Rfam assigns this 74-nucleotide RNA sequence from Burkholderiales bacterium PBB5 to the family "Glycine riboswitch aptamer". NCBI's taxonomy places the organism under Bacteria, Pseudomonadati, Pseudomonadota, Betaproteobacteria, Burkholderiales.

RNA sequence: GCAGGAGAGCGCCCCGCCAUCAGCCGGGGCCACCGAAGGCGCAAACUCCCAUGAACGCUCAGGUACCGUACUGC
Numbered sequence: 001g002c003a004g005g006a007g008a009g010c011g012c013c014c015c016g017c018c019a020u021c022a023g024c025c026g027g028g029g030c031c032a033c034c035g036a037a038g039g040c041g042c043a044a045a046c047u048c049c050c051a052u053g054a055a056c057g058c059u060c061a062g063g064u065a066c067c068g069u070a071c072u073g074c
Base pairs, nucleotide, nucleotide: 001074002073003072004071011030012029013028014027032064033063034062035060036059039058040057041056045052